[Rfam]
RNA sequence: CGUUGACUUCGACCAGACACGAUAUCCUGCAGAGAUAUUGUGCGACCUGCAGUGUCGGUCGAAUACAGCG
Numbered sequence: 001c002g003u004u005g006a007c008u009u010c011g012a013c014c015a016g017a018c019a020c021g022a023u024a025u026c027c028u029g030c031a032g033a034g035a036u037a038u039u040g041u042g043c044g045a046c047c048u049g050c051a052g053u054g055u056c057g058g059u060c061g062a063a064u065a066c067a068g069c070g
Base pairs, nucleotide, nucleotide: 001070002069003068004067005066010061011060012059013058014057021039022038023037024036025035026034044056045055046054